[Rfam]
RNA sequence: GAGUUGCCGGCGGCGGCGAGGCUAAGGGUUUCAGACCCGGAGCCGAAGCGAAAGCGAGUCUGAACAAGGCGAUGAGAGUCCCCGUCGGCAGACGCGAAACCAAGUGAUCUACCCUUGGGCAGGAUGAAGGUGAGGUAACACUCACUGGAGGUCCGAACCGGUAAGCGUUGAAAAGCUUUCGGAUGACCUGAGGGUAGGAGUGAAAGGCCAAUCAAACUUGGAGAUAGCUCGUA
Numbered sequence: 001g002a003g004u005u006g007c008c009g010g011c012g013g014c015g016g017c018g019a020g021g022c023u024a025a026g027g028g029u030u031u032c033a034g035a036c037c038c039g040g041a042g043c044c045g046a047a048g049c050g051a052a053a054g055c056g057a058g059u060c061u062g063a064a065c066a067a068g069g070c071g072a073u074g075a076g077a078g079u080c081c082c083c084g085u086c087g088g089c090a091g092a093c094g095c096g097a098a099a100c101c102a103a104g105u106g107a108u109c110u111a112c113c114c115u116u117g118g119g120c121a122g123g124a125u126g127a128a129g130g131u132g133a134g135g136u137a138a139c140a141c142u143c144a145c146u147g148g149a150g151g152u153c154c155g156a157a158c159c160g161g162u163a164a165g166c167g168u169u170g171a172a173a174a175g176c177u178u179u180c181g182g183a184u185g186a187c188c189u190g191a192g193g194g195u196a197g198g199a200g201u202g203a204a205a206g207g208c209c210a211a212u213c214a215a216a217c218u219u220g221g222a223g224a225u226a227g228c229u230c231g232u233a
Stems, first nucleotide, its partner, number of pairs: 005090009015080003020044004026038003048055002058070004093231002096228001100221006109197011120185001122154004129146006158182003163178004200208002
Dot-bracket structure: ....(((((((((.(((..((((..(((.......)))..))))...((....))..((((.....)))).......))).)))))))))..((.(...((((((...((((((((((((.((((...((((((......))))))....))))...(((..((((........)))).)))..).)))))))))))..((.....)).......))))))......).))..
RNA: Bacterial large subunit ribosomal RNA, nucleotides 620 to 852
Organism: Muribaculaceae bacterium Isolate-110